[Rfam]
RNA: 7SK RNA
RNA sequence: GGAUGUGAGGGCAAUCCGGACAUCUGUCACCCCACUGCUCUCCAGGGCUGUUGACUGAGCUGAUCUGGCUGGCCAGGUGGUGUCCCAAAGCUCUAUGUGUGUCCCUCCUGAAGGUGAGGAUGCCAUCCCCUCUAGAGACGGUACCAUUCAUCAGUCAAGGGUAUAAGGCAGCUGCGCUCCCCUGUCACAGCCUCCAAACCAGCUCAAGGUCCAUUUGUAGGAGAACAGGGGGUAGCCAAGCUUCCAAGACUGCAGACACAUCCAAGUGAGGCACUCCAUGGGGAAAUUUUCCUUUGUUU
Numbered sequence: 001g002g003a004u005g006u007g008a009g010g011g012c013a014a015u016c017c018g019g020a021c022a023u024c025u026g027u028c029a030c031c032c033c034a035c036u037g038c039u040c041u042c043c044a045g046g047g048c049u050g051u052u053g054a055c056u057g058a059g060c061u062g063a064u065c066u067g068g069c070u071g072g073c074c075a076g077g078u079g080g081u082g083u084c085c086c087a088a089a090g091c092u093c094u095a096u097g098u099g100u101g102u103c104c105c106u107c108c109u110g111a112a113g114g115u116g117a118g119g120a121u122g123c124c125a126u127c128c129c130c131u132c133u134a135g136a137g138a139c140g141g142u143a144c145c146a147u148u149c150a151u152c153a154g155u156c157a158a159g160g161g162u163a164u165a166a167g168g169c170a171g172c173u174g175c176g177c178u179c180c181c182c183u184g185u186c187a188c189a190g191c192c193u194c195c196a197a198a199c200c201a202g203c204u205c206a207a208g209g210u211c212c213a214u215u216u217g218u219a220g221g222a223g224a225a226c227a228g229g230g231g232g233u234a235g236c237c238a239a240g241c242u243u244c245c246a247a248g249a250c251u252g253c254a255g256a257c258a259c260a261u262c263c264a265a266g267u268g269a270g271g272c273a274c275u276c277c278a279u280g281g282g283g284a285a286a287u288u289u290u291c292c293u294u295u296g297u298u299u
Stems, first nucleotide, its partner, number of pairs: 001094003006087002019084006026078003030072002032068003037065001039063002042059001102141002105137003112131002118128003171241003177235002180232004185227001192223004198218002201215002264299003268294004273287001275285001277283001